[Rfam]
RNA: U4 spliceosomal RNA
RNA sequence: AGCUUUGCACAGUGGCAUUAUCAUAGCCAAUGAGAUUUAUCUGAGUUGUGAUUAUUGCCAAUUGAAAAGCAAAACCAUAAGACAUUUACUUUAGCUAACAAAUACAGGUGGAAUGCAAUUACCAAAGUAGUUCACAAACA
Numbered sequence: 001a002g003c004u005u006u007g008c009a010c011a012g013u014g015g016c017a018u019u020a021u022c023a024u025a026g027c028c029a030a031u032g033a034g035a036u037u038u039a040u041c042u043g044a045g046u047u048g049u050g051a052u053u054a055u056u057g058c059c060a061a062u063u064g065a066a067a068a069g070c071a072a073a074a075c076c077a078u079a080a081g082a083c084a085u086u087u088a089c090u091u092u093a094g095c096u097a098a099c100a101a102a103u104a105c106a107g108g109u110g111g112a113a114u115g116c117a118a119u120u121a122c123c124a125a126a127g128u129a130g131u132u133c134a135c136a137a138a139c140a
Stems, first nucleotide, its partner, number of pairs: 020052005026047001028045001034042001083115005090108002092104002130139003